[Rfam]
RNA sequence: CUUUGUAUUUUUCCACAGCUUUCUUGAACUGCAUCUAUUACAAUUUUCAUCAAUUUAAUUAUUAGUUGAAAAAAGGGGAAAUUAAUUAAUAUUUUGCGGUUCAAUAAAGCUGUGGGAAGAUACAGAUA
Numbered sequence: 001c002u003u004u005g006u007a008u009u010u011u012u013c014c015a016c017a018g019c020u021u022u023c024u025u026g027a028a029c030u031g032c033a034u035c036u037a038u039u040a041c042a043a044u045u046u047u048c049a050u051c052a053a054u055u056u057a058a059u060u061a062u063u064a065g066u067u068g069a070a071a072a073a074a075g076g077g078g079a080a081a082u083u084a085a086u087u088a089a090u091a092u093u094u095u096g097c098g099g100u101u102c103a104a105u106a107a108a109g110c111u112g113u114g115g116g117a118a119g120a121u122a123c124a125g126a127u128a
Stems, first nucleotide, its partner, number of pairs: 003125005013115003017111006024104004029099005